[Rfam]
RNA sequence: AAAAAAGGAUGAUAAGAAACCUUUCAUUAACAUCAAAGCCUUUCGGGUCUGAAGAGUAAAAUAAUGAUGAUUAGGAUUCACUGAUUUU
Numbered sequence: 001a002a003a004a005a006a007g008g009a010u011g012a013u014a015a016g017a018a019a020c021c022u023u024u025c026a027u028u029a030a031c032a033u034c035a036a037a038g039c040c041u042u043u044c045g046g047g048u049c050u051g052a053a054g055a056g057u058a059a060a061a062u063a064a065u066g067a068u069g070a071u072u073a074g075g076a077u078u079c080a081c082u083g084a085u086u087u088u
Base pairs, nucleotide, nucleotide: 003088004087005086006085
A member of the RNA family "small nucleolar RNA snoR29" from Plasmodium vivax, 88 nucleotides long. A reference for the family is Chakrabarti et al. (2007), "Structural RNAs of known and unknown function identified in malaria parasites by comparative genomics and RNA analysis", RNA. NCBI's taxonomy places the organism under Eukaryota, Sar, Alveolata, Plasmodium, Plasmodium.